[Rfam]
RNA sequence: AACGCCCUUGACCAAGACGGAUACUCGACCGCCGAUCGAAGUGAUGGUGGGUUUCAUCGAUGCGCAUCGGGAUGCGCACGGGGUCGAGCCGAUCUGCAACAUGCUGCCGAUCGCCCCG
Numbered sequence: 001a002a003c004g005c006c007c008u009u010g011a012c013c014a015a016g017a018c019g020g021a022u023a024c025u026c027g028a029c030c031g032c033c034g035a036u037c038g039a040a041g042u043g044a045u046g047g048u049g050g051g052u053u054u055c056a057u058c059g060a061u062g063c064g065c066a067u068c069g070g071g072a073u074g075c076g077c078a079c080g081g082g083g084u085c086g087a088g089c090c091g092a093u094c095u096g097c098a099a100c101a102u103g104c105u106g107c108c109g110a111u112c113g114c115c116c117c118g
Stems, first nucleotide, its partner, number of pairs: 016033001018031003079118005090113002093110002096107003
ALIL pseudoknot: a 118-nucleotide sequence from Paracoccus shanxieyensis. The literature on the family includes a 2008 paper in J Biol Chem by Mazauric et al., "Apical loop-internal loop RNA pseudoknots: a new type of stimulator of -1 translational frameshifting in bacteria". The source organism's lineage runs through Bacteria, Alphaproteobacteria, Rhodobacterales, Paracoccaceae and Paracoccus. Rfam 15.1 lists 2,146 matches to the family in 1,098 species. The match comes from Rfam's covariance-model search (81 bits).